[Rfam]
RNA: ffh sRNA
Organism: Roseinatronobacter bogoriensis
RNA sequence: UGCGGCAAGGAUCGCCACCCGCCAGCGCGUUGCGCCCGUGGGUGCAAUACUG
Number, nucleotide and partner (000 for none) at each position: 001u000002g000003c000004g000005g000006c000007a000008a000009g000010g000011a000012u000013c000014g000015c000016c044017a043018c042019c041020c040021g039022c038023c000024a000025g035026c034027g033028c032029g000030u000031u000032g028033c027034g026035c025036c000037c000038g022039u021040g020041g019042g018043u017044g016045c000046a000047a000048u000049a000050c000051u000052g000